[Rfam]
RNA sequence: CGAGCCGGUGGGUUUGGGAGAGCCCAAAGGUUCAUGAGGUCCGAGGGCCUGAGGUUUGGGAGAACCUCUUUCCGCAGGACCGUCACGAAGGGGAGAACCGCCGAUGCAGAAUACGCUUCUGGUCGGACUAUCGCGGCAGGUUGUGCUGG
Numbered sequence: 001c002g003a004g005c006c007g008g009u010g011g012g013u014u015u016g017g018g019a020g021a022g023c024c025c026a027a028a029g030g031u032u033c034a035u036g037a038g039g040u041c042c043g044a045g046g047g048c049c050u051g052a053g054g055u056u057u058g059g060g061a062g063a064a065c066c067u068c069u070u071u072c073c074g075c076a077g078g079a080c081c082g083u084c085a086c087g088a089a090g091g092g093g094a095g096a097a098c099c100g101c102c103g104a105u106g107c108a109g110a111a112u113a114c115g116c117u118u119c120u121g122g123u124c125g126g127a128c129u130a131u132c133g134c135g136g137c138a139g140g141u142u143g144u145g146c147u148g149g
Stems, first nucleotide, its partner, number of pairs: 002033005009027001010025006039080004045073001053066005101126005107121005
RNA: flg-Rhizobiales RNA